Shown here is a 129-nucleotide RNA from Propithecus coquereli, a member of the family "Small nucleolar RNA SNORA25". About the family: ACA25 is a member of the H/ACA class of snoRNA that guide the sites of modification of uridines to pseudouridines.
RNA sequence: AGGUCAUUUCAUAGAGGGCUUGUGAGGCUAUGAAACCAAGAGCUCUUAACAUUAUGACCAAAGAUUGAAGUUCUCCAUAGGAUACCAUAGUCACUCAAUAAUGUCAUGUUAUCCUAAGGAGAUAUAAGG
Numbered sequence: 001a002g003g004u005c006a007u008u009u010c011a012u013a014g015a016g017g018g019c020u021u022g023u024g025a026g027g028c029u030a031u032g033a034a035a036c037c038a039a040g041a042g043c044u045c046u047u048a049a050c051a052u053u054a055u056g057a058c059c060a061a062a063g064a065u066u067g068a069a070g071u072u073c074u075c076c077a078u079a080g081g082a083u084a085c086c087a088u089a090g091u092c093a094c095u096c097a098a099u100a101a102u103g104u105c106a107u108g109u110u111a112u113c114c115u116a117a118g119g120a121g122a123u124a125u126a127a128g129g
Base pairs, nucleotide, nucleotide: 002059003058004057005056006055007054014047015046016045017044018043019042020041021040023039026037027036072122073121074120075119076118079115080114081113082112087107088106090104092103093102095100
The source organism's lineage runs through Eukaryota, Opisthokonta, Boreoeutheria, Strepsirrhini and Propithecus.